Shown here is a 68-nucleotide RNA from Ramlibacter sp., a member of the family "ilvH RNA". It is annotated as a cis-regulatory element.

[Rfam]
RNA sequence: GAAAAAUCUAUUGUCCGCCGAGCCUGCGCAUUACCGUGCGAGGGGGAGGGCGGCGAAAAGAGAAAUCA
Numbered sequence: 001g002a003a004a005a006a007u008c009u010a011u012u013g014u015c016c017g018c019c020g021a022g023c024c025u026g027c028g029c030a031u032u033a034c035c036g037u038g039c040g041a042g043g044g045g046g047a048g049g050g051c052g053g054c055g056a057a058a059a060g061a062g063a064a065a066u067c068a
Base pairs, nucleotide, nucleotide: 011056012055013054015053016052017051018050019049023044024043025042027040028039029038030037031036